[Rfam]
RNA sequence: UUCAACUUUACAACAGAAGAUAGGAAUGAGGAAACCAUGUAUUCCGAAACUAUCUCACCGAUACUCCUGCGUGCGUUAUGAGUGACAGUUCAUAGGGUUCGAAGCUCAGGUAGAGUCGGCAGAAAGAAGGCUAGAGCCAUUCUUUAGAAAAGGUAUGCCAACUGAUAUGCCGGGUGGCUGAAAA
Numbered sequence: 001u002u003c004a005a006c007u008u009u010a011c012a013a014c015a016g017a018a019g020a021u022a023g024g025a026a027u028g029a030g031g032a033a034a035c036c037a038u039g040u041a042u043u044c045c046g047a048a049a050c051u052a053u054c055u056c057a058c059c060g061a062u063a064c065u066c067c068u069g070c071g072u073g074c075g076u077u078a079u080g081a082g083u084g085a086c087a088g089u090u091c092a093u094a095g096g097g098u099u100c101g102a103a104g105c106u107c108a109g110g111u112a113g114a115g116u117c118g119g120c121a122g123a124a125a126g127a128a129g130g131c132u133a134g135a136g137c138c139a140u141u142c143u144u145u146a147g148a149a150a151a152g153g154u155a156u157g158c159c160a161a162c163u164g165a166u167a168u169g170c171c172g173g174g175u176g177g178c179u180g181a182a183a184a
Base pairs, nucleotide, nucleotide: 018055019054020053021052022051023050031045033043034042056176057175058174059173066110067109068108069107070101071100073098074097076095077094078093079092080091081090082089083088117172118171119170120169121168125163126162129159130158131147132146133145135143136142
RNA: Group II catalytic intron D1-D4-5